RNA sequence: CGCACGCGUCGGGAGAGCGCGCCGUUUGCUGUCGUCCGUAGUCACAGCAUGCAGCGCCGCCGAAGGGGCACACCCGCAAACUCUCAGGCAAAAGGACCGAACGCGUCGA
Numbered sequence: 001c002g003c004a005c006g007c008g009u010c011g012g013g014a015g016a017g018c019g020c021g022c023c024g025u026u027u028g029c030u031g032u033c034g035u036c037c038g039u040a041g042u043c044a045c046a047g048c049a050u051g052c053a054g055c056g057c058c059g060c061c062g063a064a065g066g067g068g069c070a071c072a073c074c075c076g077c078a079a080a081c082u083c084u085c086a087g088g089c090a091a092a093a094g095g096a097c098c099g100a101a102c103g104c105g106u107c108g109a
Stems, first nucleotide, its partner, number of pairs: 006104003009100004019057004059089003062085002066083003
Glycine riboswitch aptamer: a 109-nucleotide RNA from Paraburkholderia phymatum. A search with the family's covariance model found it, with a score of 50 bits. NCBI's taxonomy places the organism under Bacteria, Pseudomonadati, Burkholderiales, Paraburkholderia, Paraburkholderia phymatum.